[Rfam]
RNA sequence: AUGGCGUCUGAACUCCUAGCCCUUUUACCUAAGUUUAGUCGAAAACAGCUGUUUUCCACUCGAUACGGUGUCUGGGCCGUGGCUAUAAGCCACCAGGGUACAAGGUAGAAAUGCCUGUGCCUCCCGAAUUGGAAAGGUGUUAACAAUGCUCCAAC
Numbered sequence: 001a002u003g004g005c006g007u008c009u010g011a012a013c014u015c016c017u018a019g020c021c022c023u024u025u026u027a028c029c030u031a032a033g034u035u036u037a038g039u040c041g042a043a044a045a046c047a048g049c050u051g052u053u054u055u056c057c058a059c060u061c062g063a064u065a066c067g068g069u070g071u072c073u074g075g076g077c078c079g080u081g082g083c084u085a086u087a088a089g090c091c092a093c094c095a096g097g098g099u100a101c102a103a104g105g106u107a108g109a110a111a112u113g114c115c116u117g118u119g120c121c122u123c124c125c126g127a128a129u130u131g132g133a134a135a136g137g138u139g140u141u142a143a144c145a146a147u148g149c150u151c152c153a154a155c
Stems, first nucleotide, its partner, number of pairs: 003149001011141003015137002019077004026070004033064003079093005096122006103116005123132002